[Rfam]
RNA sequence: GUCUUCUCAUUGAGCUCCUUUCUGUCAAUUGGUGGCAGUUUAUGGAUUCGCACGAGAAGAAGAGACAAUUCACAGAACUAGCAUUAUUUUGCCUUCUGUCUUCGAGGAGGUAUAUUCUGCUGUUUUGUGAGACAUUC
Numbered sequence: 001g002u003c004u005u006c007u008c009a010u011u012g013a014g015c016u017c018c019u020u021u022c023u024g025u026c027a028a029u030u031g032g033u034g035g036c037a038g039u040u041u042a043u044g045g046a047u048u049c050g051c052a053c054g055a056g057a058a059g060a061a062g063a064g065a066c067a068a069u070u071c072a073c074a075g076a077a078c079u080a081g082c083a084u085u086a087u088u089u090u091g092c093c094u095u096c097u098g099u100c101u102u103c104g105a106g107g108a109g110g111u112a113u114a115u116u117c118u119g120c121u122g123u124u125u126u127g128u129g130a131g132a133c134a135u136u137c
Stems, first nucleotide, its partner, number of pairs: 003059006014051002016046003022038005070130006092110006

The family of this 137-nucleotide RNA sequence from Equus asinus is "Small nucleolar RNA SNORA75". The literature on the family includes a 1997 paper in Genes Dev by Ganot et al., "The family of box ACA small nucleolar RNAs is defined by an evolutionarily conserved secondary structure and ubiquitous sequence elements essential for RNA accumulation". It is annotated as an H/ACA-box small nucleolar RNA. From the family's description: U23 belongs to the H/ACA class of snoRNAs. snoRNAs bind a number of proteins (including dyskerin, Gar1p and Nop10p in the case of the H/ACA class) to form snoRNP complexes.